[Rfam]
RNA sequence: GGCGACUCCCAUAAUGUGUAGUCCCCAGCCCGGAGCUACUUUACCAUAUUCCGAAUUC
Numbered sequence: 001g002g003c004g005a006c007u008c009c010c011a012u013a014a015u016g017u018g019u020a021g022u023c024c025c026c027a028g029c030c031c032g033g034a035g036c037u038a039c040u041u042u043a044c045c046a047u048a049u050u051c052c053g054a055a056u057u058c
Stems, first nucleotide, its partner, number of pairs: 016041001018039005023033002
Dot-bracket structure: ...............(.(((((((.......)).))))).).................
A member of the RNA family "Plastid-psbN 5UTR RNA" from Musa balbisiana, 58 nucleotides long.
Rfam 15.1 lists 2,345 matches to the family in 397 species.
Pairs were carried over by alignment from the consensus structure, which was predicted with LocARNA.
It scores 54 bits against the family's covariance model.
For this family Rfam cites "Retrograde signaling in plants: A critical review focusing on the GUN pathway and beyond" (Richter et al., Plant Commun, 2023).
Plastid psbN is a non-coding RNA (ncRNA) recognised in plastids. It was reported as a conserved 11 stem-loop in the prime untranslated region (5UTR) of psbN genes. It has been reported that the motif is retained in a subset of mature transcripts in barley, which can suggests a possible role in transcript alternative 5 prime processing.
Rfam classes the family as a cis-regulatory element.